[Rfam]
c-di-GMP-I-GGC riboswitch aptamer: a 75-nucleotide RNA sequence from Desulfuromonas sp. AOP6. The match comes from Rfam's covariance-model search (60 bits). Lineage of the source: Bacteria > Thermodesulfobacteriota > Desulfuromonadia > Desulfuromonadaceae > Desulfuromonas.
RNA sequence: UUCGAAAAGAGCAAACCCGGAGCAAUCCGGUGACGCAAAGCCACGGGCCAGAUGCUGGUAGCCGGGUUGCCGAAG
Numbered sequence: 001u002u003c004g005a006a007a008a009g010a011g012c013a014a015a016c017c018c019g020g021a022g023c024a025a026u027c028c029g030g031u032g033a034c035g036c037a038a039a040g041c042c043a044c045g046g047g048c049c050a051g052a053u054g055c056u057g058g059u060a061g062c063c064g065g066g067u068u069g070c071c072g073a074a075g
Stems, first nucleotide, its partner, number of pairs: 001075001003072002011036002017030005034061001039068004044064003047059003